Background: This 83-nucleotide RNA from Medicago truncatula belongs to the Rfam family "MIR2617 microRNA precursor family". The base pairs follow the family's consensus structure, which was predicted with RNAalifold. The source organism's lineage runs through Eukaryota, Streptophytina, Tracheophyta, Gunneridae and Medicago.

RNA sequence: AUGAAGUGUGACAUGCCCGUUUGGGAAUUACUCUGAUGCAUGUUUUAUUAAUUGAUUUUUGGGAAACGGGGUGUUACAAUUGG
Numbered sequence: 001a002u003g004a005a006g007u008g009u010g011a012c013a014u015g016c017c018c019g020u021u022u023g024g025g026a027a028u029u030a031c032u033c034u035g036a037u038g039c040a041u042g043u044u045u046u047a048u049u050a051a052u053u054g055a056u057u058u059u060u061g062g063g064a065a066a067c068g069g070g071g072u073g074u075u076a077c078a079a080u081u082g083g
Stems, first nucleotide, its partner, number of pairs: 002083001004081002007078008016070006